[Rfam]
RNA sequence: CUAAUAAUCGGUGAUGGCGUUCCACCAUUAAUCCUUCGGUUAUAAACCACUUAAUACUAAAGGUUGAUGAUACCUGACAAAGA
Numbered sequence: 001c002u003a004a005u006a007a008u009c010g011g012u013g014a015u016g017g018c019g020u021u022c023c024a025c026c027a028u029u030a031a032u033c034c035u036u037c038g039g040u041u042a043u044a045a046a047c048c049a050c051u052u053a054a055u056a057c058u059a060a061a062g063g064u065u066g067a068u069g070a071u072a073c074c075u076g077a078c079a080a081a082g083a
Base pairs, nucleotide, nucleotide: 010026011025012024013023016074017073019071020070021069049064050063051062052061
Shown here is an 83-nucleotide RNA sequence from Limnobaculum parvum, a member of the family "Fluoride riboswitch aptamer (crcB RNA motif)".
The match comes from Rfam's covariance-model search (38 bits).
Gene Ontology terms of the family: positive regulation of gene expression and response to fluoride.